[Rfam]
Nucleotides: 132
Stems, first nucleotide, its partner, number of pairs: 003056006018043009066125001068123006075116001083110010
Number, partner (000 for none) and nucleotide at each position: 001000a002000a003056a004055g005054c006053a007052g008051g009000c010000u011000g012000c013000a014000a015000u016000u017000a018043c019042a020041g021040u022039g023038c024037u025036c026035c027000a028000g029000u030000c031000u032000g033000u034000g035026g036025g037024a038023g039022u040021a041020c042019u043018g044000u045000c046000a047000u048000u049000u050000u051008c052007c053006u054005g055004c056003u057000g058000a059000g060000a061000g062000u063000a064000a065000c066125u067000c068123u069122g070121u071120u072119a073118g074000c075116a076000c077000u078000g079000g080000c081000u082000u083110u084109g085108g086107u087106u088105u089104c090103a091102c092101c093000u094000a095000u096000a097000c098000g099000a100000u101092g102091g103090u104089g105088a106087a107086a108085c109084c110083g111000c112000u113000u114000g115000u116075u117000c118073u119072u120071a121070a122069c123068a124000u125066g126000u127000a128000c129000a130000a131000c132000u

A member of the RNA family "Small nucleolar RNA SNORA69" from Rhynochetos jubatus, 132 nucleotides long.
It is annotated as an H/ACA-box small nucleolar RNA.
Pairs were carried over by alignment from the consensus structure, which was predicted with PFOLD.
From the family's description: U69 is a member of the H/ACA class of small nucleolar RNAs (snoRNAs) which act as guides in the the modification of uridines to pseudouridines.
The organism belongs to Rhynochetos, within Eukaryota.